[Rfam]
RNA sequence: UCACUUCACAUUAAGAUCGGCAUCGCUAUAUAGGUCGGUGCCGGUUUCGGCCGGCUAUGGCGAUAAAUUGCGGUGUGCAAUAGGCACAGCGGACCCGGGGGCAGUACCCGGCGGCUCCACCAUUUUCCUCCUGUUAUCGAGGGGUUGGUAUCAGGGGGCCGAACCAGGAUCGACGUGUGUUGAAAGACAUUGUUUUCGCCCGGGCUGAGUAACCCGUUAAAGGCUCAAAACUCACAAGUGCCAACGAUAACGAAGCACUCGCUCUCGCUGCGUAACCUGACGGCCUAACGGCCUGAUCUUACAAAGCUAAAGCGCGGUUGGACCCACCGGGCAACAGAAGCGGAUUCC
Numbered sequence: 001u002c003a004c005u006u007c008a009c010a011u012u013a014a015g016a017u018c019g020g021c022a023u024c025g026c027u028a029u030a031u032a033g034g035u036c037g038g039u040g041c042c043g044g045u046u047u048c049g050g051c052c053g054g055c056u057a058u059g060g061c062g063a064u065a066a067a068u069u070g071c072g073g074u075g076u077g078c079a080a081u082a083g084g085c086a087c088a089g090c091g092g093a094c095c096c097g098g099g100g101g102c103a104g105u106a107c108c109c110g111g112c113g114g115c116u117c118c119a120c121c122a123u124u125u126u127c128c129u130c131c132u133g134u135u136a137u138c139g140a141g142g143g144g145u146u147g148g149u150a151u152c153a154g155g156g157g158g159c160c161g162a163a164c165c166a167g168g169a170u171c172g173a174c175g176u177g178u179g180u181u182g183a184a185a186g187a188c189a190u191u192g193u194u195u196u197c198g199c200c201c202g203g204g205c206u207g208a209g210u211a212a213c214c215c216g217u218u219a220a221a222g223g224c225u226c227a228a229a230a231c232u233c234a235c236a237a238g239u240g241c242c243a244a245c246g247a248u249a250a251c252g253a254a255g256c257a258c259u260c261g262c263u264c265u266c267g268c269u270g271c272g273u274a275a276c277c278u279g280a281c282g283g284c285c286u287a288a289c290g291g292c293c294u295g296a297u298c299u300u301a302c303a304a305a306g307c308u309a310a311a312g313c314g315c316g317g318u319u320g321g322a323c324c325c326a327c328c329g330g331g332c333a334a335c336a337g338a339a340g341c342g343g344a345u346u347c348c
Stems, first nucleotide, its partner, number of pairs: 040055005059200005070193007085179003089176003095111005112161007201216004206227003315329004320346002323343002

Shown here is a 348-nucleotide RNA from Croceicoccus pelagius, a member of the family "Alphaproteobacteria transfer-messenger RNA". Lineage of the source: Bacteria > Pseudomonadati > Alphaproteobacteria > Sphingomonadales > Croceicoccus. Clan: tRNA clan. The base pairs follow the family's consensus structure, which is taken from published work.